[Rfam]
RNA sequence: AUCACUAUACCGAGGAUUGUAGUUCAGGAAAGCAAAGCCGCGUGCUUGAUCAAUGGUGUGAAAGAGCGGGUUCCAGUCAAACAUAGCCAGCAUAAAACUGGGGAGCGUGUUGGCCACGAACAUCUUUCCAGAAGCGAUCAUGUUGGCGCGCUG
Numbered sequence: 001a002u003c004a005c006u007a008u009a010c011c012g013a014g015g016a017u018u019g020u021a022g023u024u025c026a027g028g029a030a031a032g033c034a035a036a037g038c039c040g041c042g043u044g045c046u047u048g049a050u051c052a053a054u055g056g057u058g059u060g061a062a063a064g065a066g067c068g069g070g071u072u073c074c075a076g077u078c079a080a081a082c083a084u085a086g087c088c089a090g091c092a093u094a095a096a097a098c099u100g101g102g103g104a105g106c107g108u109g110u111u112g113g114c115c116a117c118g119a120a121c122a123u124c125u126u127u128c129c130a131g132a133a134g135c136g137a138u139c140a141u142g143u144u145g146g147c148g149c150g151c152u153g
Stems, first nucleotide, its partner, number of pairs: 002035001006032001008030001011027001014024002037057004042051001065152004070082003086147008098134002102129001103127003107123002110119003
Dot-bracket structure: .(...(.(..(..((.......))..)..).)..).((((.(........)..)))).......((((.(((.......)))...((((((((....((..((((.((.(((....)))..)).))).)...)).....)))))))).)))).

The record is a 153-nucleotide RNA from Sulfitobacter undariae, which matches "Ruegeria cis2 sRNA" in Rfam. The literature on the family includes a 2016 paper in Front Microbiol by Rivers et al., "Experimental Identification of Small Non-Coding RNAs in the Model Marine Bacterium Ruegeria pomeroyi DSS-3". The family's consensus secondary structure was predicted with RNAfold. Its family is annotated with regulation of gene expression in the Gene Ontology.